[Rfam]
The family of this 83-nucleotide RNA sequence is "c-di-GMP-II-GAG riboswitch aptamer". Rfam's curators put it in the seed alignment.

RNA sequence: CGAAUUACGGGGCUCUGACGCGCGGCCCAUACCCUGGCCGCCGGGACCGCGCCGAGCCACUGGCGAGACCGGCCCGCAGGACG
Numbered sequence: 001c002g003a004a005u006u007a008c009g010g011g012g013c014u015c016u017g018a019c020g021c022g023c024g025g026c027c028c029a030u031a032c033c034c035u036g037g038c039c040g041c042c043g044g045g046a047c048c049g050c051g052c053c054g055a056g057c058c059a060c061u062g063g064c065g066a067g068a069c070c071g072g073c074c075c076g077c078a079g080g081a082c083g
Stems, first nucleotide, its partner, number of pairs: 001083002005079002008076003011058003020052006027045001036070002039065004